RNA: SAM riboswitch aptamer (S box leader)
RNA sequence: UGCUCAUCCAGAGGGGUGGAGGGACCGGCCCUGCGAAGCCCCGGCAACCAUUCCAGCAUGUGACACCCGCGAACCCGCGGGACGGCUGGGACAGGUGCCAACUCCGGCCUGGGGACAAGGUGUCCGCCAGGAAAGAUGAGGG
Numbered sequence: 001u002g003c004u005c006a007u008c009c010a011g012a013g014g015g016g017u018g019g020a021g022g023g024a025c026c027g028g029c030c031c032u033g034c035g036a037a038g039c040c041c042c043g044g045c046a047a048c049c050a051u052u053c054c055a056g057c058a059u060g061u062g063a064c065a066c067c068c069g070c071g072a073a074c075c076c077g078c079g080g081g082a083c084g085g086c087u088g089g090g091a092c093a094g095g096u097g098c099c100a101a102c103u104c105c106g107g108c109c110u111g112g113g114g115a116c117a118a119g120g121u122g123u124c125c126g127c128c129a130g131g132a133a134a135g136a137u138g139a140g141g142g
Stems, first nucleotide, its partner, number of pairs: 001142001003140006013042005021031003025107004043099004048095002051091007103134001108131005